A member of the RNA family "DUF805 RNA" from Albibacterium bauzanense, 69 nucleotides long.
The source organism's lineage runs through Bacteria, Pseudomonadati, Bacteroidota, Sphingobacteriaceae and Albibacterium.
Pairs were carried over by alignment from the consensus structure, which is taken from published work.

RNA sequence: UAUAAAUGGAGGCUUGUAACCAUUUUAAAAAACAGGGCGAAAACGAAAAGCCAUACGAGUAGAAAUUAU
Numbered sequence: 001u002a003u004a005a006a007u008g009g010a011g012g013c014u015u016g017u018a019a020c021c022a023u024u025u026u027a028a029a030a031a032a033c034a035g036g037g038c039g040a041a042a043a044c045g046a047a048a049a050g051c052c053a054u055a056c057g058a059g060u061a062g063a064a065a066u067u068a069u
Stems, first nucleotide, its partner, number of pairs: 006023004036052003044062001